[Rfam]
RNA: Small nucleolar RNA SNORA17
Organism: Formicarius rufipectus
RNA sequence: CCUGCCCCAGCUUGUGUUGCAGGCAUGGCUGCAGUGCCACGUUUGUGUCAUUUGGUGGCAGAGAGGACAAGGCGAGGUCUUCCCCUGGUGCUCUGACCCACGUGGGCUCCCAGGAUUGCUCAACAAACU
Numbered sequence: 001c002c003u004g005c006c007c008c009a010g011c012u013u014g015u016g017u018u019g020c021a022g023g024c025a026u027g028g029c030u031g032c033a034g035u036g037c038c039a040c041g042u043u044u045g046u047g048u049c050a051u052u053u054g055g056u057g058g059c060a061g062a063g064a065g066g067a068c069a070a071g072g073c074g075a076g077g078u079c080u081u082c083c084c085c086u087g088g089u090g091c092u093c094u095g096a097c098c099c100a101c102g103u104g105g106g107c108u109c110c111c112a113g114g115a116u117u118g119c120u121c122a123a124c125a126a127a128c129u
Stems, first nucleotide, its partner, number of pairs: 002061005007055004014048002019046004024041001026039004071124001074121003081115003087111002090107004
Dot-bracket structure: .(((((((((...((...((((.(.((((......)))).).))))))...)))).))))).........(..(((....(((...((.((((..........))))..)).)))...)))..).....